The record is an 81-nucleotide RNA from Eleutherodactylus coqui, which matches "mir-26 microRNA precursor family" in Rfam. Rfam 15.1 lists 2,251 matches to the family in 645 species. NCBI's taxonomy places the organism under Eukaryota, Opisthokonta, Dipnotetrapodomorpha, Amphibia, Eleutherodactylus. A reference for the family is Lagos-Quintana et al. (2001), "Identification of novel genes coding for small expressed RNAs", Science.
[Rfam]
RNA sequence: CCUCAGCCUGGUUCAAGUAAUCCAGGAUAGGCUGUUCACAUUCUACUUGGCCUAUCCUUGAUUACUUGCAUUAGGAGGAAG
Numbered sequence: 001c002c003u004c005a006g007c008c009u010g011g012u013u014c015a016a017g018u019a020a021u022c023c024a025g026g027a028u029a030g031g032c033u034g035u036u037c038a039c040a041u042u043c044u045a046c047u048u049g050g051c052c053u054a055u056c057c058u059u060g061a062u063u064a065c066u067u068g069c070a071u072u073a074g075g076a077g078g079a080a081g
Stems, first nucleotide, its partner, number of pairs: 003079002007075006014068009024058010